The record is a 158-nucleotide RNA from Nannospalax galili, which matches "U1 spliceosomal RNA" in Rfam. Lineage of the source: Eukaryota > Eumetazoa > Rodentia > Muroidea > Nannospalax. The family's RNA type in Rfam is spliceosomal small nuclear RNA. The match comes from Rfam's covariance-model search (86 bits). Rfam's curators write: U1 is a small nuclear RNA (snRNA) component of the spliceosome (involved in pre-mRNA splicing).

RNA sequence: GAGUGUACCUGGCAGGGGAGAUGAUAUGCUCACAAAGGUGGUUUUCCCAAGCAGUGCUUAUCCAUUGCACUCUGGAUGUGCUGACCCCUGUGAUUUCUCCAAAUAUGGGAAUUCAACUGCAUGAUUUGUGGUAGUGGGGUCUUCAUACGUUCCCCUAA
Numbered sequence: 001g002a003g004u005g006u007a008c009c010u011g012g013c014a015g016g017g018g019a020g021a022u023g024a025u026a027u028g029c030u031c032a033c034a035a036a037g038g039u040g041g042u043u044u045u046c047c048c049a050a051g052c053a054g055u056g057c058u059u060a061u062c063c064a065u066u067g068c069a070c071u072c073u074g075g076a077u078g079u080g081c082u083g084a085c086c087c088c089u090g091u092g093a094u095u096u097c098u099c100c101a102a103a104u105a106u107g108g109g110a111a112u113u114c115a116a117c118u119g120c121a122u123g124a125u126u127u128g129u130g131g132u133a134g135u136g137g138g139g140u141c142u143u144c145a146u147a148c149g150u151u152c153c154c155c156u157a158a
Base pairs, nucleotide, nucleotide: 012120013119014118015117016048017047018046019045020044021043023042025040026039027038049089051086056081057080059078060077061076062075063074091115092114093113094111095110096109098108099107135157136156137155138154139153